[Rfam]
RNA sequence: AAAAUACUUCAGCAGCACUCCGAUUAUGGUGAAAAAAUUUAUUUUUUCACCAUAAUCGGAGUGCUGCUGAAGUCUUUA
Numbered sequence: 001a002a003a004a005u006a007c008u009u010c011a012g013c014a015g016c017a018c019u020c021c022g023a024u025u026a027u028g029g030u031g032a033a034a035a036a037a038u039u040u041a042u043u044u045u046u047u048c049a050c051c052a053u054a055a056u057c058g059g060a061g062u063g064c065u066g067c068u069g070a071a072g073u074c075u076u077u078a
Stems, first nucleotide, its partner, number of pairs: 002077002006073002011068008020058001022057008
Dot-bracket structure: .((..((...((((((((.(.((((((((....................)))))))))..))))))))...))..)).